[Rfam]
RNA sequence: UGUCCUGUGCAGGUGGGGAUUAGUGGCAAUGCUGUAUACCUGGAGGUAUUGCACUUGUCCCGGCCUGUGAAGGAGUG
Dot-bracket structure: ...(((..((((((.(((((.(((.((((((((...........))))))))))).))))).))))))..)))....
mir-92 microRNA precursor family: a 77-nucleotide RNA sequence from Menidia menidia. Gene Ontology terms of the family: miRNA-mediated post-transcriptional gene silencing and RISC complex. The source organism's lineage runs through Eukaryota, Chordata, Neopterygii, Euacanthomorphacea and Menidia. Rfam describes the family as follows. This family represents the microRNA precursor mir-92. Human miR-92 has two predicted hairpin precursor sequences: mir-92-1 on chromosome 13 and mir-92-2 on chromosome X. miR-92 has also been cloned from mouse embryonic stem cells. The family is grouped with related families in Rfam's "mir-92 microRNA precursor clan".